[Rfam]
This 171-nucleotide RNA sequence from Lachnoclostridium sp. An76 belongs to the Rfam family "M-box riboswitch aptamer (ykoK leader)". Pairs were carried over by alignment from the consensus structure. The match comes from Rfam's covariance-model search (85 bits). On this family, see Barrick et al., Proc Natl Acad Sci U S A 2004: "New RNA motifs suggest an expanded scope for riboswitches in bacterial genetic control". M-box riboswitch, also know as ykoK leader is described as a metaloregulatory RNA that sense divalent metals and function as a genetic control element of genes related to divalent metal transport in bacteria. It was first reported upstream of the B.subtilis ykoK gene and genes with related functions in other bacteria.
RNA sequence: AGAUUAUUUCGGUAGGUGAGGUUACCACAGGGAUUGGGAUUUUAUCCCGAAGAUUGCUGCCGCGGGACCGUGGAGACACGGUUAGAUGGUCAGCAGGCCGCGUCGUGAAGGCGCAGCCUAAUGCAAUUGAUAUGCCCUGUGAUGCUAAAGCUUGAACGAUGCAUGUUUCCA
Numbered sequence: 001a002g003a004u005u006a007u008u009u010c011g012g013u014a015g016g017u018g019a020g021g022u023u024a025c026c027a028c029a030g031g032g033a034u035u036g037g038g039a040u041u042u043u044a045u046c047c048c049g050a051a052g053a054u055u056g057c058u059g060c061c062g063c064g065g066g067a068c069c070g071u072g073g074a075g076a077c078a079c080g081g082u083u084a085g086a087u088g089g090u091c092a093g094c095a096g097g098c099c100g101c102g103u104c105g106u107g108a109a110g111g112c113g114c115a116g117c118c119u120a121a122u123g124c125a126a127u128u129g130a131u132a133u134g135c136c137c138u139g140u141g142a143u144g145c146u147a148a149a150g151c152u153u154g155a156a157c158g159a160u161g162c163a164u165g166u167u168u169c170c171a
Base pairs, nucleotide, nucleotide: 006166007165009163011157013109015152016151017150020146021145022144026141027140028139029138030137031136032135053127054126055125056124057123059090060089061088062087069080070079071078072077096118097117098116102112103111104110